SAM riboswitch aptamer (S box leader): a 121-nucleotide RNA sequence from Clostridium ljungdahlii. The source organism's lineage runs through Bacteria, Bacillati, Eubacteriales, Clostridiaceae and Clostridium.

RNA sequence: UCCUUAUCAAGAGAAACUUAGGGACUGGCCCUAUGAAGUUUCAGCAACCUCAUGUUUCGCCAUGCGUAAACAUGUAAAGGUGCUAAUUCCAGCAGAUCAUAAUAAUUCUGAAAGAUGAGGG
Numbered sequence: 001u002c003c004u005u006a007u008c009a010a011g012a013g014a015a016a017c018u019u020a021g022g023g024a025c026u027g028g029c030c031c032u033a034u035g036a037a038g039u040u041u042c043a044g045c046a047a048c049c050u051c052a053u054g055u056u057u058c059g060c061c062a063u064g065c066g067u068a069a070a071c072a073u074g075u076a077a078a079g080g081u082g083c084u085a086a087u088u089c090c091a092g093c094a095g096a097u098c099a100u101a102a103u104a105a106u107u108c109u110g111a112a113a114g115a116u117g118a119g120g121g
Stems, first nucleotide, its partner, number of pairs: 001121008013042005021031003025092004043084004048080002050076001051074007088113001093110004
Record summary: From the family's description: The SAM riboswitch is found upstream of a number of genes which code for proteins involved in methionine or cysteine biosynthesis in Gram-positive bacteria. The SAM riboswitch acts at the level of transcription termination control. The predicted structure consists of a complex stem-loop region followed by a single stem loop terminator region. An alternative and mutually exclusive form involves bases in the 3' segment of helix 1 with those in the 5' region of helix 5 to form a structure termed the anti-terminator form. This entry represents the conserved core of the complex structure involving helices 1-4.